[Rfam]
Overview
Shown here is a 48-nucleotide RNA sequence from Methylomicrobium album, a member of the family "Guanidine-II riboswitch aptamer (mini-ykkC)". The family's consensus secondary structure is taken from published work. Rfam describes the family as follows. Simpler in structure and has fewer highly conserved nucleotide positions than the ykkC-yxkD leader.
RNA sequence: GCACCGGGACGGCCCGGCGCGCAGCAAUCUUUCGGCGGGACGGCCCGC
Number, nucleotide and partner (000 for none) at each position: 001g020002c019003a000004c017005c016006g015007g014008g013009a000010c000011g000012g000013c008014c007015c006016g005017g004018c000019g002020c001021g000022c000023a000024g000025c000026a000027a000028u000029c000030u000031u000032u000033c000034g000035g048036c047037g046038g045039g044040a000041c000042g000043g000044c039045c038046c037047g036048c035